The family of this 34-nucleotide sequence from Sitophilus oryzae is "S4-Flavobacteria ribosomal protein leader". NCBI's taxonomy places the organism under Eukaryota, Pterygota, Aparaglossata, Curculionoidea, Sitophilus.

RNA sequence: GUAUAUCAAAGGAAAUAUCCUUAAUUUAUAUAUC
Numbered sequence: 001g002u003a004u005a006u007c008a009a010a011g012g013a014a015a016u017a018u019c020c021u022u023a024a025u026u027u028a029u030a031u032a033u034c
Stems, first nucleotide, its partner, number of pairs: 001034001002032005008027001009022004
Pairs were carried over by alignment from the consensus structure, which is taken from published work. A reference for the family is Eckert and Weinberg (2020), "Discovery of 20 novel ribosomal leader candidates in bacteria and archaea", BMC Microbiol. The family is grouped with related families in Rfam's "Ribosomal Protein S4 Leader clan".